RNA sequence: AUCAGGUCCCGGGUUCGCGGGGCCAGGCCGGCGCCGGCAGGCGAAUCCGGUCCGACGCCCGUCGAUAACCUGGCGUCACG
Numbered sequence: 001a002u003c004a005g006g007u008c009c010c011g012g013g014u015u016c017g018c019g020g021g022g023c024c025a026g027g028c029c030g031g032c033g034c035c036g037g038c039a040g041g042c043g044a045a046u047c048c049g050g051u052c053c054g055a056c057g058c059c060c061g062u063c064g065a066u067a068a069c070c071u072g073g074c075g076u077c078a079c080g
Stems, first nucleotide, its partner, number of pairs: 005024007026052006032043004054077006